About this RNA:
Shown here is a 112-nucleotide RNA sequence from Pan troglodytes, a member of the family "Y RNA". The match comes from Rfam's covariance-model search (66 bits). The family's consensus secondary structure is taken from published work. For this family Rfam cites "Ro ribonucleoproteins contribute to the resistance of Deinococcus radiodurans to ultraviolet irradiation" (Chen et al., Genes Dev, 2000).
RNA sequence: GGCUGGUCUGAAGAUAGUAAGUUAUCUCAAUUUAUUUUCACAAUCAGUUACAGAUCAAACUCUUUGUUCUACUGUUUCCCCCCUUCUCACUACUGCACUUGACUAGUCUAAA
Dot-bracket structure: ((((((((.((...((((.((.....................(..((.....................))..)............)).)))...)...))))))))))....